MIR2912 microRNA precursor family: a 153-nucleotide sequence from Populus tomentosa. The family has 2 seed sequences and 15,051 matches in Rfam 15.1. Rfam links the family to the GO terms RISC complex and miRNA-mediated post-transcriptional gene silencing. NCBI's taxonomy places the organism under Eukaryota, Tracheophyta, Magnoliopsida, rosids, Populus. The base pairs follow the family's consensus structure, which was predicted with RNAalifold.

RNA sequence: UCUGGAUCCCGAGAUAUGGGCUGAACACUGAACAGUGUCUGGGCUGCAAGACAAAUUCUAACUUCUUUGUUGCUAAGAUUUGGACUUCCAAACAACUGAAUUAGGUCUUGCACUUCAUAUGAAUGUUUUAGGCCUAUAUCUUAGCUUUCCAUC
Numbered sequence: 001u002c003u004g005g006a007u008c009c010c011g012a013g014a015u016a017u018g019g020g021c022u023g024a025a026c027a028c029u030g031a032a033c034a035g036u037g038u039c040u041g042g043g044c045u046g047c048a049a050g051a052c053a054a055a056u057u058c059u060a061a062c063u064u065c066u067u068u069g070u071u072g073c074u075a076a077g078a079u080u081u082g083g084a085c086u087u088c089c090a091a092a093c094a095a096c097u098g099a100a101u102u103a104g105g106u107c108u109u110g111c112a113c114u115u116c117a118u119a120u121g122a123a124u125g126u127u128u129u130a131g132g133c134c135u136a137u138a139u140c141u142u143a144g145c146u147u148u149c150c151a152u153c
Stems, first nucleotide, its partner, number of pairs: 003151004008144001011142010021131005027126002035120003041116003045112002048109005054102005063094001069085003
Dot-bracket structure: ..((((.(..(((((((((((((((.((......(((...(((.((.(((((.(((((....(.....(((...........)))........)...)))))..))))).)).))).)))....))))))).)))))))))).)...))))..